Rhizobiales sRNA Atu_At1: a 109-nucleotide RNA from Sinorhizobium terangae. It is annotated as a small RNA. Taxonomically the source falls in Sinorhizobium (Bacteria, Pseudomonadota, Alphaproteobacteria, Rhizobiaceae).
[Rfam]
RNA sequence: ACUCGGACCGUGUCAACCGGACGCGACGGAAGUGGAGAAUGCGGGAAUUUUUCCGGUUUCUUCCCGCAACCAACGAAAACGGUAGUCGAACUCCCAACCCGUCCGGUUC
Numbered sequence: 001a002c003u004c005g006g007a008c009c010g011u012g013u014c015a016a017c018c019g020g021a022c023g024c025g026a027c028g029g030a031a032g033u034g035g036a037g038a039a040u041g042c043g044g045g046a047a048u049u050u051u052u053c054c055g056g057u058u059u060c061u062u063c064c065c066g067c068a069a070c071c072a073a074c075g076a077a078a079a080c081g082g083u084a085g086u087c088g089a090a091c092u093c094c095c096a097a098c099c100c101g102u103c104c105g106g107u108u109c
Base pairs, nucleotide, nucleotide: 006108007107008106009105011023012022013021014020025103026102027101028100029099034094035093036092037091040068041067042066043065044064045063046062069083070082071081